A member of the RNA family "Actinobacteria sRNA Ms_AS-4", 82 nucleotides long. The pairing is the family consensus, mapped onto this sequence. The sequence is in the family's curated seed alignment. The literature on the family includes a 2013 paper in RNA by Li et al., "Identification of small RNAs in Mycobacterium smegmatis using heterologous Hfq".
RNA sequence: UCUGGCAUCCUUGUAGCGGUUCGGCGCGUCGCCGAACUCGCCAAGCACCCGGGCGCCGAGGACGAGACCUAGUCCGGGAAGA
Numbered sequence: 001u002c003u004g005g006c007a008u009c010c011u012u013g014u015a016g017c018g019g020u021u022c023g024g025c026g027c028g029u030c031g032c033c034g035a036a037c038u039c040g041c042c043a044a045g046c047a048c049c050c051g052g053g054c055g056c057c058g059a060g061g062a063c064g065a066g067a068c069c070u071a072g073u074c075c076g077g078g079a080a081g082a
Base pairs, nucleotide, nucleotide: 008044012040013039018038019037020036021035022034023033024032025031056078057077060075061074062073063072